[Rfam]
RNA sequence: AUUGAGUGGGAAUAAGACAUUAAAUUAAUAAUAUUUGUGAAGCCUAUCUUAAAGCGUUUUUCAACUUGUUAAAUGUUUUAAAUGCUUGAUUUAUGAUAGUAUUCACCACCAAAAGACCCCCCCAAGAUAUAUUUCUUGGGGGGUUAAUU
Dot-bracket structure: .......(.(((....................................((.(((.((.(((.(.....).))).))))).))..(.(.....).)......))).)......((...(((((((((........)))))))))))....
Numbered sequence: 001a002u003u004g005a006g007u008g009g010g011a012a013u014a015a016g017a018c019a020u021u022a023a024a025u026u027a028a029u030a031a032u033a034u035u036u037g038u039g040a041a042g043c044c045u046a047u048c049u050u051a052a053a054g055c056g057u058u059u060u061u062c063a064a065c066u067u068g069u070u071a072a073a074u075g076u077u078u079u080a081a082a083u084g085c086u087u088g089a090u091u092u093a094u095g096a097u098a099g100u101a102u103u104c105a106c107c108a109c110c111a112a113a114a115g116a117c118c119c120c121c122c123c124a125a126g127a128u129a130u131a132u133u134u135c136u137u138g139g140g141g142g143g144u145u146a147a148u149u
Stems, first nucleotide, its partner, number of pairs: 008106001010104003049082002052079003056076002059073003063069001085095001087093001113145002118143009

This 149-nucleotide RNA sequence from Bacillus thuringiensis belongs to the Rfam family "Listeria sRNA rli38". Taxonomically the source falls in Bacillus thuringiensis serovar sotto (Bacteria, Bacillati, Bacillaceae, Bacillus thuringiensis). Pairs were carried over by alignment from the consensus structure, which was predicted with RNAalifold. The family's RNA type in Rfam is small RNA. On this family, see Toledo-Arana et al., Nature 2009: "The Listeria transcriptional landscape from saprophytism to virulence". It is one of the family's seed sequences.